The family of this 115-nucleotide RNA from Trichoderma atroviride is "U5 spliceosomal RNA". The sequence is in the family's curated seed alignment. The organism belongs to Trichoderma atroviride, within Eukaryota. A reference for the family is Zwieb (1997), "The uRNA database", Nucleic Acids Res. It is annotated as a spliceosomal small nuclear RNA. The base pairs follow the family's consensus structure, which is taken from published work.
RNA sequence: UUGGAGUGGGACCUCCCAUCGAAUUCACCUCUUGCCUUUUACCAGAUGUGACCGUGGGAUUGGCCCAGCAGACUCCAUUUCAAUAAUCUUUGGCAUUACCUCAUCUGGAUGUUCC
Number, nucleotide and partner (000 for none) at each position: 001u000002u000003g076004g075005a074006g073007u000008g000009g066010g065011a000012c063013c062014u059015c058016c057017c056018a055019u000020c000021g000022a000023a000024u000025u051026c050027a049028c048029c000030u046031c045032u044033u000034g000035c000036c000037u000038u000039u000040u000041a000042c000043c000044a032045g031046a030047u000048g028049u027050g026051a025052c000053c000054g000055u018056g017057g016058g015059a014060u000061u000062g013063g012064c000065c010066c009067a000068g000069c000070a000071g000072a000073c006074u005075c004076c003077a000078u000079u000080u000081c000082a000083a000084u000085a000086a000087u000088c000089u000090u000091u000092g000093g000094c000095a000096u000097u000098a112099c111100c000101u109102c000103a000104u000105c000106u000107g000108g000109a101110u000111g099112u098113u000114c000115c000
From the family's description: U5 RNA is a component of both types of known spliceosome. The precise function of this molecule is unknown, though it is known that the 5' loop is required for splice site selection and p220 binding, and that both the 3' stem-loop and the Sm site are important for Sm protein binding and cap methylation.